[Rfam]
RNA sequence: AAGAAUUAAUCCUAAUUCUUGGGACCCUAUCAGUAUUGCCUCUGCUGUCCACUGUGUUCAGAGUAGUGCAAUAUUGCUAAUAGGGUUUUAGGUUUUAGGUUGU
Numbered sequence: 001a002a003g004a005a006u007u008a009a010u011c012c013u014a015a016u017u018c019u020u021g022g023g024a025c026c027c028u029a030u031c032a033g034u035a036u037u038g039c040c041u042c043u044g045c046u047g048u049c050c051a052c053u054g055u056g057u058u059c060a061g062a063g064u065a066g067u068g069c070a071a072u073a074u075u076g077c078u079a080a081u082a083g084g085g086u087u088u089u090a091g092g093u094u095u096u097a098g099g100u101u102g103u
Base pairs, nucleotide, nucleotide: 021089022088023087024086025085026084027083028082029081030080031076032075033074034073035072036071037070038069039068042066043065044064045063046061

Shown here is a 103-nucleotide RNA sequence from Danio rerio, a member of the family "mir-454 microRNA precursor family".
It is one of the family's seed sequences.
The source organism's lineage runs through Eukaryota, Vertebrata, Gnathostomata, Otophysi and Danio.